[Rfam]
RNA sequence: CCACCGGUCAUUGGGGAGUAGCCGCCUUCCAUUGCGAGAAGGGUGUGCGUCAACAGACUUGUCCGGCUUCGUGCGGGACAUGGCGCAGACAGUGUUCCACCUGGCGAGACCUUUGACCGUGCAACUUCGGGUGUGGCCGAAGGUGUUGCACGGUCAAUUGCGUUCUCUUCGGCCCAAGGAAUC
Numbered sequence: 001c002c003a004c005c006g007g008u009c010a011u012u013g014g015g016g017a018g019u020a021g022c023c024g025c026c027u028u029c030c031a032u033u034g035c036g037a038g039a040a041g042g043g044u045g046u047g048c049g050u051c052a053a054c055a056g057a058c059u060u061g062u063c064c065g066g067c068u069u070c071g072u073g074c075g076g077g078a079c080a081u082g083g084c085g086c087a088g089a090c091a092g093u094g095u096u097c098c099a100c101c102u103g104g105c106g107a108g109a110c111c112u113u114u115g116a117c118c119g120u121g122c123a124a125c126u127u128c129g130g131g132u133g134u135g136g137c138c139g140a141a142g143g144u145g146u147u148g149c150a151c152g153g154u155c156a157a158u159u160g161c162g163u164u165c166u167c168u169u170c171g172g173c174c175c176a177a178g179g180a181a182u183c
Stems, first nucleotide, its partner, number of pairs: 026041001028040001043090002046087007060080005091182001093180001095178002